The record is a 73-nucleotide sequence from Gloeothece citriformis, which matches "Cyano-1 RNA" in Rfam. It is one of the family's seed sequences. The family's consensus secondary structure is taken from published work.
RNA sequence: UGUGGUGUGAGGAAAAAGUAGAGAAACGUUUGGGGUCGAAACACGGACAGACUCCCGAACGUUUUUCUCAUUU
Dot-bracket structure: ...................(((((..((...((((((............))).)))...))..))))).....
Numbered sequence: 001u002g003u004g005g006u007g008u009g010a011g012g013a014a015a016a017a018g019u020a021g022a023g024a025a026a027c028g029u030u031u032g033g034g035g036u037c038g039a040a041a042c043a044c045g046g047a048c049a050g051a052c053u054c055c056c057g058a059a060c061g062u063u064u065u066u067c068u069c070a071u072u073u
Stems, first nucleotide, its partner, number of pairs: 020068005027061002032056003035052003

Rfam 15.1 lists 283 matches to the family in 194 species.